[Rfam]
RNA: c-di-AMP riboswitch aptamer (ydaO/yuaA leader)
Organism: Bacillus sp. MUM 116
RNA sequence: UUGAAUAACCGGCUUAAUCCUGGUGCACCAGGAACGGAGGAACCAAUUAUUGGGGGUUAAUUCUGUUUACAGAAGGGAUGAGUAACUCUUUCGCCAUCCUACCCGUCAGCUAACUUCGUCGGCUAAAGCGAAGGAGGUC
Numbered sequence: 001u002u003g004a005a006u007a008a009c010c011g012g013c014u015u016a017a018u019c020c021u022g023g024u025g026c027a028c029c030a031g032g033a034a035c036g037g038a039g040g041a042a043c044c045a046a047u048u049a050u051u052g053g054g055g056g057u058u059a060a061u062u063c064u065g066u067u068u069a070c071a072g073a074a075g076g077g078a079u080g081a082g083u084a085a086c087u088c089u090u091u092c093g094c095c096a097u098c099c100u101a102c103c104c105g106u107c108a109g110c111u112a113a114c115u116u117c118g119u120c121g122g123c124u125a126a127a128g129c130g131a132a133g134g135a136g137g138u139c
Base pairs, nucleotide, nucleotide: 011124012123013122014121018033019032020031021030022029023028034119035118036117037116038115039114044053054104055103056102062073063072064071065070076099077098078097079096